[Rfam]
RNA sequence: CUCCGUCCGCGUGACUGGCGAUGAGAGGGAGCACCCUCGGGGAGCGCGGACCGCAUCGACAGCCGUUCGCCUGGGCGCCCAUC
Number, nucleotide and partner (000 for none) at each position: 001c000002u000003c053004c000005g051006u050007c049008c048009g047010c046011g045012u044013g000014a000015c041016u040017g071018g070019c069020g068021a067022u000023g000024a000025g000026a037027g036028g035029g034030a000031g000032c000033a000034c029035c028036c027037u026038c000039g000040g016041g015042g000043a000044g012045c011046g010047c009048g008049g007050a006051c005052c000053g003054c000055a000056u000057c000058g000059a000060c000061a000062g076063c075064c074065g000066u000067u021068c020069g019070c018071c017072u000073g000074g064075g063076c062077g000078c000079c000080c000081a000082u000083c000

Rfam assigns this 83-nucleotide RNA sequence from Caulobacter sp. Root655 to the family "ZMP/ZTP riboswitch aptamer (pfl RNA motif)". It scores 62 bits against the family's covariance model. The family's consensus secondary structure is taken from published work. NCBI's taxonomy places the organism under Bacteria, Pseudomonadati, Alphaproteobacteria, Caulobacterales, Caulobacter.